About this RNA: The family of this 137-nucleotide RNA sequence from Myotis davidii is "Small nucleolar RNA SNORA29". A search with the family's covariance model found it, with a score of 99 bits. A reference for the family is Huttenhofer et al. (2001), "RNomics: an experimental approach that identifies 201 candidates for novel, small, non-messenger RNAs in mouse", EMBO J.
RNA sequence: UAUUUUAAUAGAACUUAUAUAAAACAAUAAAAAUAUGUUAGUGGCUAUGCUUAUGGGAUAGAGUAACAUUGCCAUGAUCUGAAGGGGGAGGAUUUGUUUGUGUCCUCCUUCUACAUGAAAUGGCUAAACAGAAAAAA
Numbered sequence: 001u002a003u004u005u006u007a008a009u010a011g012a013a014c015u016u017a018u019a020u021a022a023a024a025c026a027a028u029a030a031a032a033a034u035a036u037g038u039u040a041g042u043g044g045c046u047a048u049g050c051u052u053a054u055g056g057g058a059u060a061g062a063g064u065a066a067c068a069u070u071g072c073c074a075u076g077a078u079c080u081g082a083a084g085g086g087g088g089a090g091g092a093u094u095u096g097u098u099u100g101u102g103u104c105c106u107c108c109u110u111c112u113a114c115a116u117g118a119a120a121u122g123g124c125u126a127a128a129c130a131g132a133a134a135a136a137a
Stems, first nucleotide, its partner, number of pairs: 001055002013042002071124004089112004